[Rfam]
RNA: FMN riboswitch aptamer (RFN element)
Organism: Pelagibacterium lacus
RNA sequence: AUUCGUUCUCAGGGCGGGGUGAAAGUCCCCACCGGCGGUAAUGAGGCCCCGCGCCUCCUAGCCCGCGAGCGCUUUCCGGCUUUUUCGGAAGGGUCAGCAGAUUUCGGUGCGAUUCCGAAGCCGACGGUCACAGUCCGGAUGAAGAGAGAACGGGU
Numbered sequence: 001a002u003u004c005g006u007u008c009u010c011a012g013g014g015c016g017g018g019g020u021g022a023a024a025g026u027c028c029c030c031a032c033c034g035g036c037g038g039u040a041a042u043g044a045g046g047c048c049c050c051g052c053g054c055c056u057c058c059u060a061g062c063c064c065g066c067g068a069g070c071g072c073u074u075u076c077c078g079g080c081u082u083u084u085u086c087g088g089a090a091g092g093g094u095c096a097g098c099a100g101a102u103u104u105c106g107g108u109g110c111g112a113u114u115c116c117g118a119a120g121c122c123g124a125c126g127g128u129c130a131c132a133g134u135c136c137g138g139a140u141g142a143a144g145a146g147a148g149a150a151c152g153g154g155u
Stems, first nucleotide, its partner, number of pairs: 003153008017029003031134002033123002035066004061121002069098002103119005125137003